Shown here is a 56-nucleotide sequence from Devosia equisanguinis, a member of the family "sul1 RNA". Lineage of the source: Bacteria > Pseudomonadota > Hyphomicrobiales > Devosiaceae > Devosia.

RNA sequence: CUCGGACCCGGUGCAAUUCCGGGUGGCUCUUCUGGCCGCCGAUCCGCCAGACAAUC
Number, nucleotide and partner (000 for none) at each position: 001c000002u000003c000004g000005g000006a024007c023008c022009c021010g020011g019012u000013g000014c000015a000016a000017u000018u000019c011020c010021g009022g008023g007024u006025g000026g000027c000028u000029c000030u000031u051032c050033u049034g048035g047036c046037c000038g000039c000040c000041g000042a000043u000044c000045c000046g036047c035048c034049a033050g032051a031052c000053a000054a000055u000056c000